RNA sequence: AGACAAGGAUGAGGAAGGUUCGCAUGUAUUAGCUGAAUGCUGGUGAUGUGCAUCAACCAGCUCUAGAAUUACCCUGAGUUUUC
Dot-bracket structure: ((((.........................................................................))))..

Small nucleolar RNA SNORD45: an 83-nucleotide RNA sequence from Symbiodinium pilosum. The source organism's lineage runs through Eukaryota, Alveolata, Dinophyceae, Symbiodiniaceae and Symbiodinium. The base pairs follow the family's consensus structure, which was predicted with PFOLD. The match comes from Rfam's covariance-model search (43 bits). Its family is annotated with nucleolus and RNA processing in the Gene Ontology. Rfam 15.1 lists 1,629 matches to the family in 521 species.